[Rfam]
RNA sequence: GGAGGUAAAUGAUGUAAAAUCACUUUAUGCUUUUUCACUGAAUUUCCGUGUGGAUAAAAAAACUCCGCUUAUUGUCUGAUGCCUCU
Number, nucleotide and partner (000 for none) at each position: 001g000002g000003a084004g083005g082006u081007a080008a000009a000010u000011g000012a000013u000014g000015u000016a000017a000018a000019a000020u000021c000022a000023c000024u000025u000026u000027a000028u000029g000030c000031u000032u000033u000034u000035u000036c000037a000038c000039u000040g000041a000042a000043u000044u000045u000046c000047c000048g000049u000050g000051u000052g000053g000054a000055u000056a000057a000058a000059a000060a000061a000062a000063c000064u000065c000066c000067g000068c000069u000070u000071a000072u000073u000074g000075u000076c000077u000078g000079a000080u007081g006082c005083c004084u003085c000086u000